[Rfam]
RNA sequence: CACGUUAGUGCGCUAUGCUGACGUGGAAACAAAUCGUGUUCUGAAGGCCGCGCUUUAUUGCCUCAUAAGCAAAGCGCGCUGACGUGG
Numbered sequence: 001c002a003c004g005u006u007a008g009u010g011c012g013c014u015a016u017g018c019u020g021a022c023g024u025g026g027a028a029a030c031a032a033a034u035c036g037u038g039u040u041c042u043g044a045a046g047g048c049c050g051c052g053c054u055u056u057a058u059u060g061c062c063u064c065a066u067a068a069g070c071a072a073a074g075c076g077c078g079c080u081g082a083c084g085u086g087g
Stems, first nucleotide, its partner, number of pairs: 001086014016071004021066001023064001025062002028059002031056003035052004040047002
The family of this 87-nucleotide RNA sequence from Gossypium schwendimanii is "MIR7486 microRNA precursor family".
Rfam 15.1 lists 10,132 matches to the family in 36 species.
Pairs were carried over by alignment from the consensus structure, which was predicted with RNAalifold.